[Rfam]
RNA sequence: GUGUAGGAUGCGUUAUCUUUGAAAAUAUGACUAUAGACGGUCGUGAUUUGAUUAUAUCAUCGUGUUUGUUCAUGUGCAAUAUAAAAGAACCUGGAGGUUUUCCAGGUUCUUUUUUUU
Numbered sequence: 001g002u003g004u005a006g007g008a009u010g011c012g013u014u015a016u017c018u019u020u021g022a023a024a025a026u027a028u029g030a031c032u033a034u035a036g037a038c039g040g041u042c043g044u045g046a047u048u049u050g051a052u053u054a055u056a057u058c059a060u061c062g063u064g065u066u067u068g069u070u071c072a073u074g075u076g077c078a079a080u081a082u083a084a085a086a087g088a089a090c091c092u093g094g095a096g097g098u099u100u101u102c103c104a105g106g107u108u109c110u111u112u113u114u115u116u117u
Stems, first nucleotide, its partner, number of pairs: 033073002036070003039065001042062002083113012
The family of this 117-nucleotide RNA sequence from Paenibacillus riograndensis is "Bacillus sRNA ncr1015". The base pairs follow the family's consensus structure, which is taken from published work. Taxonomically the source falls in Paenibacillus riograndensis (Bacteria, Bacilli, Paenibacillaceae, Paenibacillus). The family's RNA type in Rfam is small RNA.